[Rfam]
RNA sequence: AAUUGUGUUUGCCACACUUGCUGUGAAGCGAGGUCGGAAAGCUUCAGGUCUCUACGGUUUUUUGGAGAUGGCUGAGUCGCACCC
Numbered sequence: 001a002a003u004u005g006u007g008u009u010u011g012c013c014a015c016a017c018u019u020g021c022u023g024u025g026a027a028g029c030g031a032g033g034u035c036g037g038a039a040a041g042c043u044u045c046a047g048g049u050c051u052c053u054a055c056g057g058u059u060u061u062u063u064g065g066a067g068a069u070g071g072c073u074g075a076g077u078c079g080c081a082c083c084c
Base pairs, nucleotide, nucleotide: 012037013036017032018031019030020029021028022027041077042076043075045074046073047072048069049068050067051066052065053064054063
This 84-nucleotide RNA sequence from Methyloprofundus sp. belongs to the Rfam family "c-di-GMP-I riboswitch aptamer". Pairs were carried over by alignment from the consensus structure, which is taken from published work. Its Rfam clan is "c-di-GMP_I riboswitch clan". NCBI's taxonomy places the organism under Bacteria, Pseudomonadati, Pseudomonadota, Methylococcales, Methyloprofundus.